The record is a 352-nucleotide RNA from Thermodesulforhabdus norvegica, which matches "Bacterial RNase P class A" in Rfam. A search with the family's covariance model found it, with a score of 344 bits. The family's RNA type in Rfam is ribozyme.

[Rfam]
RNA sequence: GGAGCAGAUCACGUGGUCGCUCCGGUGCUUUGACGCAUCGGGGAGGAAAGUCCGGGCUCCACAGGGCAGGGUGCUGGGUAACACCCAGUGGGGGCGACCCCAGGAAAGUGCCACAGAAAACAGACCGCCUCGCCUAAGGCGGGGUAAGGGUGAAACGGUGAGGUAAGAGCUCACCAGGUCCCGCGGUGACGCGGGAUGCUAGGCAAACCCCACCCGGAGCAAGACCAAAUAGGGGAGCGCUUGAGGGUGGCCCGCCCAAUGCUCCCGGGUAGGUCGCUAGAUCCCUCUGGUAACAGAGGGACCAGAUAAAUGACCACGCUCGACAGAACCCGGCUUAUGAUCGGCUCCGCCU
Numbered sequence: 001g002g003a004g005c006a007g008a009u010c011a012c013g014u015g016g017u018c019g020c021u022c023c024g025g026u027g028c029u030u031u032g033a034c035g036c037a038u039c040g041g042g043g044a045g046g047a048a049a050g051u052c053c054g055g056g057c058u059c060c061a062c063a064g065g066g067c068a069g070g071g072u073g074c075u076g077g078g079u080a081a082c083a084c085c086c087a088g089u090g091g092g093g094g095c096g097a098c099c100c101c102a103g104g105a106a107a108g109u110g111c112c113a114c115a116g117a118a119a120a121c122a123g124a125c126c127g128c129c130u131c132g133c134c135u136a137a138g139g140c141g142g143g144g145u146a147a148g149g150g151u152g153a154a155a156c157g158g159u160g161a162g163g164u165a166a167g168a169g170c171u172c173a174c175c176a177g178g179u180c181c182c183g184c185g186g187u188g189a190c191g192c193g194g195g196a197u198g199c200u201a202g203g204c205a206a207a208c209c210c211c212a213c214c215c216g217g218a219g220c221a222a223g224a225c226c227a228a229a230u231a232g233g234g235g236a237g238c239g240c241u242u243g244a245g246g247g248u249g250g251c252c253c254g255c256c257c258a259a260u261g262c263u264c265c266c267g268g269g270u271a272g273g274u275c276g277c278u279a280g281a282u283c284c285c286u287c288u289g290g291u292a293a294c295a296g297a298g299g300g301a302c303c304a305g306a307u308a309a310a311u312g313a314c315c316a317c318g319c320u321c322g323a324c325a326g327a328a329c330c331c332g333g334c335u336u337a338u339g340a341u342c343g344g345c346u347c348c349g350c351c352u
Base pairs, nucleotide, nucleotide: 001348002347003346004345005344007342008341009340010339011338012318013317014316015315016314017313018312020043021042022041023040024039025038026037027036028035048336049335050334052333053332054331055330056329057219058218059217060216064253065252066251067250069215070214071213072212073211074088075087076086077085078084089102090101091100092099093098103210104209108208109207110204111203112202125149126148127145128144129143130142131141132140133139134138157175158174159173160172161171162170177199178197179196180195181194182193183192184191185190223275224274225273226272233266234265235264236263237262238261245257246256247255248254282301283300284299285298286297287296288295289294
Dot-bracket structure: (((((.((((((((((((.(((((((((......)))))))))....[[[.[[[[[((((...[[[[.((((((((((.....)))))(((((....)))))((...(((((............((((((((((...))))))))..)).......((((((.......)))))).(((((((((....)))))))).)..)))..)))))))))))))...((((......((((((......((((.]]]]))))...)))))).....))))......((((((((....))))))))..........)))))))..........]]]]]]]].))))).)))))....